A member of the RNA family "SAM riboswitch aptamer (S box leader)" from Tenacibaculum sp. Bg11-29, 125 nucleotides long. NCBI's taxonomy places the organism under Bacteria, Pseudomonadati, Flavobacteriia, Flavobacteriaceae, Tenacibaculum. About the family: The SAM riboswitch is found upstream of a number of genes which code for proteins involved in methionine or cysteine biosynthesis in Gram-positive bacteria. The SAM riboswitch acts at the level of transcription termination control. The predicted structure consists of a complex stem-loop region followed by a single stem loop terminator region.
RNA sequence: AUGUUAUCAAGAAAGGUGGAGGGAUUAGACCCUGUGAAACCUUAGCAACCCUUUGUUUUAGACAAAGUAGGUGCUAAAUUCUACUUAAUUUUAGAUUCAUUUAUCUAAAAUUGGAUAGAUAACUC
Numbered sequence: 001a002u003g004u005u006a007u008c009a010a011g012a013a014a015g016g017u018g019g020a021g022g023g024a025u026u027a028g029a030c031c032c033u034g035u036g037a038a039a040c041c042u043u044a045g046c047a048a049c050c051c052u053u054u055g056u057u058u059u060a061g062a063c064a065a066a067g068u069a070g071g072u073g074c075u076a077a078a079u080u081c082u083a084c085u086u087a088a089u090u091u092u093a094g095a096u097u098c099a100u101u102u103a104u105c106u107a108a109a110a111u112u113g114g115a116u117a118g119a120u121a122a123c124u125c
Stems, first nucleotide, its partner, number of pairs: 003123006013043005021032003026083004044075004049071002051067004079117001084114002087111001089109003
Dot-bracket structure: ..((((((....(((((...(((..[[[[)))......)))))((((.((((((.........))))..))))))...(]]]]((.(.(((...............))).).))..)))))))..